[Rfam]
RNA sequence: UGUAAUGAUAGAGGUGCGAUGUUUAAUAGUACCAUUAUGGAGGUAAGCGCUAUGAAGUAAUGGAAAAGGAAUCAUCGCCGAAGUGUAUAGUUAAUGCUUUAAGGACUAUAUUGCUGGGCUUGCAUAAAAUAUAUGUAAGACUGUCACAGUGUUGUGGAGUGCUAUCCGAAGU
Numbered sequence: 001u002g003u004a005a006u007g008a009u010a011g012a013g014g015u016g017c018g019a020u021g022u023u024u025a026a027u028a029g030u031a032c033c034a035u036u037a038u039g040g041a042g043g044u045a046a047g048c049g050c051u052a053u054g055a056a057g058u059a060a061u062g063g064a065a066a067a068g069g070a071a072u073c074a075u076c077g078c079c080g081a082a083g084u085g086u087a088u089a090g091u092u093a094a095u096g097c098u099u100u101a102a103g104g105a106c107u108a109u110a111u112u113g114c115u116g117g118g119c120u121u122g123c124a125u126a127a128a129a130u131a132u133a134u135g136u137a138a139g140a141c142u143g144u145c146a147c148a149g150u151g152u153u154g155u156g157g158a159g160u161g162c163u164a165u166c167c168g169a170a171g172u
Stems, first nucleotide, its partner, number of pairs: 007166005016078006023071002032063007082115004086110007116142002119139008144157005